[Rfam]
Nucleotides: 084
Base pairs, nucleotide, nucleotide: 001084002083003082004081005080006079008077009076010075011074012073013072015070016069017068018067019066020065021064022062023061026058027057028056029055030054031053032052033051034050035049
Number, partner (000 for none) and nucleotide at each position: 001084u002083g003082u004081g005080u006079g007000c008077g009076g010075u011074g012073g013072g014000g015070u016069g017068g018067c019066a020065g021064u022062g023061u024000a025000u026058g027057u028056u029055a030054g031053c032052u033051g034050g035049u036000u037000g038000a039000a040000a041000c042000u043000c044000u045000u046000g047000a048000c049035a050034u051033c052032a053031g054030c055029u056028a057027a058026c059000a060000c061023g062022c063000a064021g065020u066019u067018g068017c069016u070015a071000a072013c073012c074011u075010g076009c077008u078000c079006c080005a081004c082003a083002u084001a
A member of the RNA family "mir-449 microRNA precursor family" from Gallus gallus, 84 nucleotides long. For this family Rfam cites "Small RNA expression and strain specificity in the rat" (Linsen et al., BMC Genomics, 2010). Its Rfam clan is "mir-34 clan". NCBI's taxonomy places the organism under Eukaryota, Opisthokonta, Dipnotetrapodomorpha, Sauropsida, Gallus. Gene Ontology terms of the family: RISC complex and miRNA-mediated post-transcriptional gene silencing.